[Rfam]
RNA sequence: ACGUUUUUUUCAUAGAGAUUUAGAUUUAAGGUUAGAAGAAUUGUGGAAGUCGUGAGACUUCCCUUUUUUUCAUCUUAAAGUUUGCUUUCUUUUUGAGCAAAAGCAUAAAAAGAAAGUAAACCUAAAAAGCCCCUUCGUGAGAAGAGGCUUUUUU
Numbered sequence: 001a002c003g004u005u006u007u008u009u010u011c012a013u014a015g016a017g018a019u020u021u022a023g024a025u026u027u028a029a030g031g032u033u034a035g036a037a038g039a040a041u042u043g044u045g046g047a048a049g050u051c052g053u054g055a056g057a058c059u060u061c062c063c064u065u066u067u068u069u070u071c072a073u074c075u076u077a078a079a080g081u082u083u084g085c086u087u088u089c090u091u092u093u094u095g096a097g098c099a100a101a102a103g104c105a106u107a108a109a110a111a112g113a114a115a116g117u118a119a120a121c122c123u124a125a126a127a128a129g130c131c132c133c134u135u136c137g138u139g140a141g142a143a144g145a146g147g148c149u150u151u152u153u154u
Stems, first nucleotide, its partner, number of pairs: 025079008035071006045062007080122001082120002085116011124153008133144004
RNA: Bacteroides sRNA BTnc231
Organism: Bacteroides fragilis